[Rfam]
RNA sequence: CUGCCUCUUGCUUCAACAGUGUUUGGAUGAACAG
Dot-bracket structure: (((..(.(.(.((((((...).))))))).))))
Numbered sequence: 001c002u003g004c005c006u007c008u009u010g011c012u013u014c015a016a017c018a019g020u021g022u023u024u025g026g027a028u029g030a031a032c033a034g
Stems, first nucleotide, its partner, number of pairs: 001034003006031001008029001010028001012027005017021001